[Rfam]
RNA sequence: GGACUUAUGAUGAGAUAUGCUGACUAUGAGCAUGAUGAAGUGAAGCUCAAUAUGAUUUCUCUGAAUUCC
Numbered sequence: 001g002g003a004c005u006u007a008u009g010a011u012g013a014g015a016u017a018u019g020c021u022g023a024c025u026a027u028g029a030g031c032a033u034g035a036u037g038a039a040g041u042g043a044a045g046c047u048c049a050a051u052a053u054g055a056u057u058u059c060u061c062u063g064a065a066u067u068c069c
Stems, first nucleotide, its partner, number of pairs: 001069003005065001012061003021054001027049005
Source information: Small Nucleolar RNA SNORD64: a 69-nucleotide sequence from Loxodonta africana. Gene Ontology terms of the family: RNA processing and nucleolus. Lineage of the source: Eukaryota > Craniata > Gnathostomata > Mammalia > Loxodonta. About the family: The human snoRNA HBII-13 belongs to the C/D family of snoRNAs. It is expressed mainly in the brain, but is also in the lungs, the kidneys and muscle.